[Rfam]
RNA sequence: UCAAGAAUUCAUGGCCAUAGCAGAAAUGUUUCCAGUGUAGCCAUGUCAGACUCCAAUCAAUCUGCAAAUUCUGCU
Numbered sequence: 001u002c003a004a005g006a007a008u009u010c011a012u013g014g015c016c017a018u019a020g021c022a023g024a025a026a027u028g029u030u031u032c033c034a035g036u037g038u039a040g041c042c043a044u045g046u047c048a049g050a051c052u053c054c055a056a057u058c059a060a061u062c063u064g065c066a067a068a069u070u071c072u073g074c075u
Base pairs, nucleotide, nucleotide: 012043013042014041015040019075020074021073022072023071024070025069026038027037028036047064048063049062050061052059